[Rfam]
RNA: Small nucleolar RNA SNORA13
RNA sequence: UGCCUUUGUGUUGCCCAUUCAUUCCCUUCUGAAAUGAAUGUGGUGUCAAAAAAGGCAGAGAAGAAUUCUUGCUCAAACUGCUUAAGGAGUUGUUUAUUUGCCUUUCUCCCUGCAAACCUUUUUUUUUUUUUUUUUCAAGGACAAAA
Numbered sequence: 001u002g003c004c005u006u007u008g009u010g011u012u013g014c015c016c017a018u019u020c021a022u023u024c025c026c027u028u029c030u031g032a033a034a035u036g037a038a039u040g041u042g043g044u045g046u047c048a049a050a051a052a053a054g055g056c057a058g059a060g061a062a063g064a065a066u067u068c069u070u071g072c073u074c075a076a077a078c079u080g081c082u083u084a085a086g087g088a089g090u091u092g093u094u095u096a097u098u099u100g101c102c103u104u105u106c107u108c109c110c111u112g113c114a115a116a117c118c119u120u121u122u123u124u125u126u127u128u129u130u131u132u133u134u135u136c137a138a139g140g141a142c143a144a145a146a
Stems, first nucleotide, its partner, number of pairs: 002056006009048002012045004016040008068139004075131003084126006